mir-190 microRNA precursor family: an 80-nucleotide RNA sequence from Microctonus hyperodae. The family's consensus secondary structure was predicted with RNAalifold. A search with the family's covariance model found it, with a score of 74 bits. Rfam 15.1 lists 1,667 matches to the family in 854 species. Lineage of the source: Eukaryota > Metazoa > Bilateria > Neoptera > Microctonus. For this family Rfam cites "Cloning and expression of new microRNAs from zebrafish" (Kloosterman et al., Nucleic Acids Res, 2006).
RNA sequence: AUUAUCGUGAGAUAUGUUUGAUAUUCUUGGUUGUUUUUUAUGUAUAAUCGACCAGGAAUCAAACAUAUUAUUACGGUGAC
Numbered sequence: 001a002u003u004a005u006c007g008u009g010a011g012a013u014a015u016g017u018u019u020g021a022u023a024u025u026c027u028u029g030g031u032u033g034u035u036u037u038u039u040a041u042g043u044a045u046a047a048u049c050g051a052c053c054a055g056g057a058a059u060c061a062a063a064c065a066u067a068u069u070a071u072u073a074c075g076g077u078g079a080c
Stems, first nucleotide, its partner, number of pairs: 005076005011069012024056002029053005